small nucleolar RNA snoR137: a 158-nucleotide RNA from Spinacia oleracea. Rfam 15.1 lists 808 matches to the family in 221 species. Gene Ontology terms of the family: RNA processing and nucleolus. On this family, see Chen and Wu, Nucleic Acids Res 2009: "Mining small RNA sequencing data: a new approach to identify small nucleolar RNAs in Arabidopsis". The match comes from Rfam's covariance-model search (97 bits). The family's RNA type in Rfam is H/ACA-box small nucleolar RNA.

RNA sequence: GUUGCUUCAUAUGGUGAACUCUCUCUUGGUAAAUGAGAAGUGUUCUAGUUUCCGAAGCAUAAAUUAAAAACAAAAUGCCAGUUUUAAACAGCACGAUGAAUGGAUUAAUCAAUUAGUCUCCUUUACUUUCAUCGCGUUACCUGUCAGCUGGUACAUUU
Numbered sequence: 001g002u003u004g005c006u007u008c009a010u011a012u013g014g015u016g017a018a019c020u021c022u023c024u025c026u027u028g029g030u031a032a033a034u035g036a037g038a039a040g041u042g043u044u045c046u047a048g049u050u051u052c053c054g055a056a057g058c059a060u061a062a063a064u065u066a067a068a069a070a071c072a073a074a075a076u077g078c079c080a081g082u083u084u085u086a087a088a089c090a091g092c093a094c095g096a097u098g099a100a101u102g103g104a105u106u107a108a109u110c111a112a113u114u115a116g117u118c119u120c121c122u123u124u125a126c127u128u129u130c131a132u133c134g135c136g137u138u139a140c141c142u143g144u145c146a147g148c149u150g151g152u153a154c155a156u157u158u
Base pairs, nucleotide, nucleotide: 003059004058005057006056007055008054016045017044018043019042020040022038023037024036077152078151079150080149081148082147083146090138091137092136094134095133096132097131098130099129100128